A member of the RNA family "2dG-I riboswitch aptamer (M. florum)" from Williamsoniiplasma luminosum, 62 nucleotides long. Taxonomically the source falls in Williamsoniiplasma (Bacteria, Mycoplasmatota, Mollicutes, Entomoplasmatales). A search with the family's covariance model found it, with a score of 51 bits. Clan: Purine riboswitches. The literature on the family includes a 2007 paper in Proc Natl Acad Sci U S A by Kim et al., "Guanine riboswitch variants from Mesoplasma florum selectively recognize 2'-deoxyguanosine". Rfam 15.1 lists 24 matches to the family in 11 species. The base pairs follow the family's consensus structure, which is taken from published work.
RNA sequence: ACUUAUAUAUGCUAGAACAAUGGUCUGGCGUCUCUACCCUUAACCAAUUAAGGACUAUAAGU
Numbered sequence: 001a002c003u004u005a006u007a008u009a010u011g012c013u014a015g016a017a018c019a020a021u022g023g024u025c026u027g028g029c030g031u032c033u034c035u036a037c038c039c040u041u042a043a044c045c046a047a048u049u050a051a052g053g054a055c056u057a058u059a060a061g062u
Base pairs, nucleotide, nucleotide: 001062002061003060004059005058006057007056008036011029012028013027014026015025016024022045023044030037038053039052040051041050042049043048